[Rfam]
This 94-nucleotide sequence from Aquilegia coerulea belongs to the Rfam family "MIR2275 microRNA precursor family". Pairs were carried over by alignment from the consensus structure, which was predicted with RNAalifold. The match comes from Rfam's covariance-model search (73 bits). NCBI's taxonomy places the organism under Eukaryota, Embryophyta, Euphyllophyta, Magnoliopsida, Aquilegia.
RNA sequence: GGUUUGAAUGUGAGAAUUGGAUGAAACCAAAUCCUUUUUGUCCUCAAAUAAAUAAAGGAGGAUUUGGUUUCCUUCAAUAUCUUACCUUCAACCG
Numbered sequence: 001g002g003u004u005u006g007a008a009u010g011u012g013a014g015a016a017u018u019g020g021a022u023g024a025a026a027c028c029a030a031a032u033c034c035u036u037u038u039u040g041u042c043c044u045c046a047a048a049u050a051a052a053u054a055a056a057g058g059a060g061g062a063u064u065u066g067g068u069u070u071c072c073u074u075c076a077a078u079a080u081c082u083u084a085c086c087u088u089c090a091a092c093c094g
Base pairs, nucleotide, nucleotide: 004091005090006089007088008087011084012083013082014081016078017077018076019075020074021073023071024070025069026068027067028066029065030064032062033061